[Rfam]
RNA sequence: UCUCCCUGGCAAUGGGCAAAGAGACACCUCUUUAGUGGUGUUGUUCUUAUAUCAGUCAUGGGUAAAGCAAAUGCCAGUCCUUUGUUCAUCCUAACUGGAUCCCUGACUUGGUGGCCAAAGCUGUAUUAUGCCUAGGACAGAGAA
Numbered sequence: 001u002c003u004c005c006c007u008g009g010c011a012a013u014g015g016g017c018a019a020a021g022a023g024a025c026a027c028c029u030c031u032u033u034a035g036u037g038g039u040g041u042u043g044u045u046c047u048u049a050u051a052u053c054a055g056u057c058a059u060g061g062g063u064a065a066a067g068c069a070a071a072u073g074c075c076a077g078u079c080c081u082u083u084g085u086u087c088a089u090c091c092u093a094a095c096u097g098g099a100u101c102c103c104u105g106a107c108u109u110g111g112u113g114g115c116c117a118a119a120g121c122u123g124u125a126u127u128a129u130g131c132c133u134a135g136g137a138c139a140g141a142g143a144a
Base pairs, nucleotide, nucleotide: 001064003062004061005060007058008057013054014053015052019048020047021046023042024041025040026039027038028037083139084138085137086136087135098132100130104128105127106126109123110122112120
Shown here is a 144-nucleotide sequence from Mus spicilegus, a member of the family "Small nucleolar RNA SNORA48". The organism belongs to Mus, within Eukaryota. Gene Ontology terms of the family: nucleolus and RNA processing. The snoRNA ACA 48 has been identified to guide pseudouridylation of the residue U3797 in the 28S rRNA subunit. Rfam classes the family as an H/ACA-box small nucleolar RNA. A search with the family's covariance model found it, with a score of 70 bits. Rfam 15.1 lists 2,109 matches to the family in 150 species.